[Rfam]
Shown here is a 91-nucleotide sequence from Carya illinoinensis, a member of the family "MIR397 microRNA precursor family". The match comes from Rfam's covariance-model search (72 bits). The family has 7 seed sequences and 496 matches in Rfam 15.1. Taxonomically the source falls in Carya (Eukaryota, Viridiplantae, Embryophyta, rosids).
RNA sequence: UUGAGAAACAUCAUUGAGUGCAGCGUUGAUGAAAGUCCUCUUCUUUUUGUGUUGGACAUUUUCGUUAGCGCUGCACCCAAUCAUGUUUCUA
Numbered sequence: 001u002u003g004a005g006a007a008a009c010a011u012c013a014u015u016g017a018g019u020g021c022a023g024c025g026u027u028g029a030u031g032a033a034a035g036u037c038c039u040c041u042u043c044u045u046u047u048u049g050u051g052u053u054g055g056a057c058a059u060u061u062u063c064g065u066u067a068g069c070g071c072u073g074c075a076c077c078c079a080a081u082c083a084u085g086u087u088u089c090u091a
Base pairs, nucleotide, nucleotide: 006088007087008086009085010084011083013081014080015079016078018076019075020074021073022072023071024070025069026068027067028066030064031063032062033061034060035059